[Rfam]
This 120-nucleotide RNA from Triticum urartu belongs to the Rfam family "U5 spliceosomal RNA". U5 RNA is a component of both types of known spliceosome. By type it is a spliceosomal small nuclear RNA.

RNA sequence: AGCUGCGUGGCGAGCACAAAGCGAACUAUUCUUUCGCCUUUUACUAAAGAAUACCGUGUGCACGCCACAUCAAGCAGCAUACACCUAUUUUUGAAGGGUUCUCUUCCUUUACUGGAGGGU
Numbered sequence: 001a002g003c004u005g006c007g008u009g010g011c012g013a014g015c016a017c018a019a020a021g022c023g024a025a026c027u028a029u030u031c032u033u034u035c036g037c038c039u040u041u042u043a044c045u046a047a048a049g050a051a052u053a054c055c056g057u058g059u060g061c062a063c064g065c066c067a068c069a070u071c072a073a074g075c076a077g078c079a080u081a082c083a084c085c086u087a088u089u090u091u092u093g094a095a096g097g098g099u100u101c102u103c104u105u106c107c108u109u110u111a112c113u114g115g116a117g118g119g120u
Base pairs, nucleotide, nucleotide: 003077004076005075006074008067009066010065011064012063014061015060016059017058018057027053028052029051030050031049032048033047034046095120101119102118103117104116105115106114